[Rfam]
RNA sequence: CGCUGUCGAGCUGUGGACGAUUAAACAGAGCACAAUCAAGCGGAAACUGUAAACCGCAUGUACAAAUAACAGAUAUAAAUGAUUGUCAGAAGGAGAACAAAG
Numbered sequence: 001c002g003c004u005g006u007c008g009a010g011c012u013g014u015g016g017a018c019g020a021u022u023a024a025a026c027a028g029a030g031c032a033c034a035a036u037c038a039a040g041c042g043g044a045a046a047c048u049g050u051a052a053a054c055c056g057c058a059u060g061u062a063c064a065a066a067u068a069a070c071a072g073a074u075a076u077a078a079a080u081g082a083u084u085g086u087c088a089g090a091a092g093g094a095g096a097a098c099a100a101a102g
Stems, first nucleotide, its partner, number of pairs: 005018003010031003033085005040057004
Shown here is a 102-nucleotide RNA sequence, a member of the family "GP20-a RNA".
The sequence is in the family's curated seed alignment.
The family's consensus secondary structure is taken from published work.